[Rfam]
RNA sequence: CUGAGUCCGUGAUGAUGUAAAGUUAUCCCUGUCUGAAGGCCAAGAGGCCUUUCUGUGUGGAACGUGGUUGUCUGAAACUCAG
Dot-bracket structure: ((((((......................................................................))))))